[Rfam]
RNA sequence: UAGAAGAAUGUAGAUAAGGGAAGUCGGCAAAAUAGAUCCGUAACUUCGGGAAAAGGAUUGGCUCUGAGGGUUGGGCCUAGGGGUCUUUUUGGAGAACUUGUGGCGGCCUACGUUGGGCUGCGUCUGGACCUUUCGGGGACCGGAUGCGGCCUGGCGGUCGGGCUGCUCUUGUUGUGCCGGAGAGAAAGGUAGUUGGCUUUCGGGCUGGCUGCUGUUUCCUUAGUGCGUUGAACAACCGGCUCAGAACUGGAGCGGACAAGGGGAAUCCGACUGUUUAAUUAAAACAAAGCAUUGUGAUGGCCGGAGACGGUGUUGACACAAUGUGAUUUCUGCCCAGUGCUCUGAAUGUCAAAGUGAAGAGAUUCAACCAAGCGCGGGUAAACGGCGGGAGUAACUAUGACUCUCUUAAGGUAGCCAAAUGCCUCGUCAUCUAACUAGUGACGCGCAUGAAUGGAUUAAUGAGAUUCCCACUGUCCCUAUCUACUGUCUAGCGAACCCACAGCCAAGGGAACGGGCUUGGAA
Number, nucleotide and partner (000 for none) at each position: 001u490002a489003g488004a487005a000006g000007a000008a000009u000010g484011u483012a482013g481014a480015u479016a478017a000018g476019g475020g474021a000022a000023g000024u000025c000026g000027g000028c000029a000030a000031a000032a000033u000034a000035g059036a058037u057038c056039c055040g000041u000042a000043a000044c049045u000046u000047c000048g000049g044050g000051a000052a000053a000054a000055g039056g038057a037058u036059u035060g248061g247062c000063u245064c244065u243066g242067a241068g240069g237070g236071u235072u234073g233074g000075g226076c225077c000078u223079a000080g221081g220082g219083g218084u185085c184086u183087u000088u181089u180090u179091g178092g000093a000094g000095a000096a000097c171098u000099u000100g168101u000102g000103g166104c165105g164106g163107c162108c161109u160110a000111c156112g155113u154114u153115g152116g151117g150118c149119u148120g147121c146122g145123u144124c143125u142126g141127g140128a000129c138130c137131u136132u000133u000134c000135g000136g131137g130138g129139a000140c127141c126142g125143g124144a123145u122146g121147c120148g119149g118150c117151c116152u115153g114154g113155c112156g111157g000158u000159c000160g109161g108162g107163c106164u105165g104166c103167u000168c100169u000170u000171g097172u000173u000174g000175u000176g000177c000178c091179g090180g089181a088182g000183a086184g085185a084186a000187a000188g000189g000190u000191a000192g000193u000194u000195g000196g000197c000198u000199u000200u000201c000202g000203g000204g000205c000206u000207g000208g000209c000210u000211g000212c000213u000214g000215u000216u000217u000218c083219c082220u081221u080222a000223g078224u000225g076226c075227g000228u000229u000230g000231a000232a000233c073234a072235a071236c070237c069238g000239g000240c068241u067242c066243a065244g064245a063246a000247c061248u060249g253250g000251a000252g000253c249254g000255g000256a000257c000258a000259a000260g000261g469262g468263g467264a466265a465266u464267c463268c461269g460270a000271c000272u286273g285274u284275u000276u000277a000278a000279u000280u000281a000282a000283a000284a274285c273286a272287a000288a000289g324290c323291a322292u321293u320294g319295u318296g317297a000298u000299g000300g311301c310302c309303g308304g000305a000306g000307a000308c303309g302310g301311u300312g000313u000314u000315g000316a000317c296318a295319c294320a293321a292322u291323g290324u289325g000326a000327u000328u455329u454330c453331u000332g386333c385334c384335c000336a000337g383338u382339g379340c378341u377342c376343u000344g375345a000346a000347u374348g373349u372350c000351a000352a000353a000354g000355u366356g365357a364358a363359g000360a000361g000362a000363u358364u357365c356366a355367a000368c000369c000370a000371a000372g349373c348374g347375c344376g342377g341378g340379u339380a000381a000382a338383c337384g334385g333386c332387g405388g404389g403390a402391g401392u400393a000394a000395c000396u000397a000398u000399g000400a392401c391402u390403c389404u388405c387406u410407u000408a000409a000410g406411g000412u000413a000414g000415c000416c000417a000418a000419a000420u000421g000422c000423c000424u000425c000426g442427u441428c440429a439430u438431c000432u000433a000434a000435c000436u000437a000438g430439u429440g428441a427442c426443g000444c000445g000446c000447a000448u000449g000450a000451a000452u000453g330454g329455a328456u000457u000458a000459a000460u269461g268462a000463g267464a266465u265466u264467c263468c262469c261470a000471c000472u000473g000474u020475c019476c018477c000478u016479a015480u014481c013482u012483a011484c010485u000486g000487u004488c003489u002490a001491g000492c000493g000494a000495a000496c000497c000498c000499a000500c000501a000502g000503c520504c519505a518506a517507g516508g000509g000510a000511a000512c000513g000514g000515g000516c507517u506518u505519g504520g503521a000522a000
RNA: Eukaryotic large subunit ribosomal RNA, nucleotides 2147 to 2668